RNA sequence: ACAGAAAAAGCCAAACCCCGAGAGAUCGGGAGACGGAAAGCCACGGGUCUGAACUUAAAGAUAGCCGGGCUGCCUUAA
Numbered sequence: 001a002c003a004g005a006a007a008a009a010g011c012c013a014a015a016c017c018c019c020g021a022g023a024g025a026u027c028g029g030g031a032g033a034c035g036g037a038a039a040g041c042c043a044c045g046g047g048u049c050u051g052a053a054c055u056u057a058a059a060g061a062u063a064g065c066c067g068g069g070c071u072g073c074c075u076u077a078a
Base pairs, nucleotide, nucleotide: 003075004074011036012035017030018029019028020027021026034064039071040070041069042068044067045066046065047062048061049060
Record summary:
The family of this 78-nucleotide sequence from an Olavius algarvensis Delta 1 endosymbiont is "c-di-GMP-I-GGC riboswitch aptamer". The base pairs follow the family's consensus structure, which is taken from published work. The source organism's lineage runs through Bacteria, delta/epsilon subdivisions and Deltaproteobacteria.